Rfam assigns this 59-nucleotide RNA from Musa balbisiana to the family "Plastid-psbA-4 3UTR RNA".

RNA sequence: GAAACAAAGUAGCAAUACCCAUGUCUUGCUUUAGCAAGACAGGGGUAUUGCUACUUUGU
Numbered sequence: 001g002a003a004a005c006a007a008a009g010u011a012g013c014a015a016u017a018c019c020c021a022u023g024u025c026u027u028g029c030u031u032u033a034g035c036a037a038g039a040c041a042g043g044g045g046u047a048u049u050g051c052u053a054c055u056u057u058g059u
Stems, first nucleotide, its partner, number of pairs: 006057012020043001023040006

Plastid psbA-4 is a non-coding RNA (ncRNA) present in plastids. It was identified in inverted repeat sequences in the 3 prime untranslate region (3UTR) of photosystem II quinone-binding protein (psbA). Pairs were carried over by alignment from the consensus structure, which was predicted with LocARNA. The literature on the family includes a 2023 paper in Plant Commun by Richter et al., "Retrograde signaling in plants: A critical review focusing on the GUN pathway and beyond". Rfam classes the family as a cis-regulatory element.